RNA sequence: AAAAAGGGCUUCUGUCAUGAGUGGCACACGUAGAGCAGCUUGAUUACGUGCGGAAUCGACAUCAAGAGAUUUCGGAAGCAUAGUUUUUUGGUACGUGGGCAGCUGGUGAUCGUUGGUCCCGGCCCCCGC
Numbered sequence: 001a002a003a004a005a006g007g008g009c010u011u012c013u014g015u016c017a018u019g020a021g022u023g024g025c026a027c028a029c030g031u032a033g034a035g036c037a038g039c040u041u042g043a044u045u046a047c048g049u050g051c052g053g054a055a056u057c058g059a060c061a062u063c064a065a066g067a068g069a070u071u072u073c074g075g076a077a078g079c080a081u082a083g084u085u086u087u088u089u090g091g092u093a094c095g096u097g098g099g100c101a102g103c104u105g106g107u108g109a110u111c112g113u114u115g116g117u118c119c120c121g122g123c124c125c126c127c128g129c
Stems, first nucleotide, its partner, number of pairs: 008079005013026005027050007051074007097127003102123005108118004
RNA: U11 spliceosomal RNA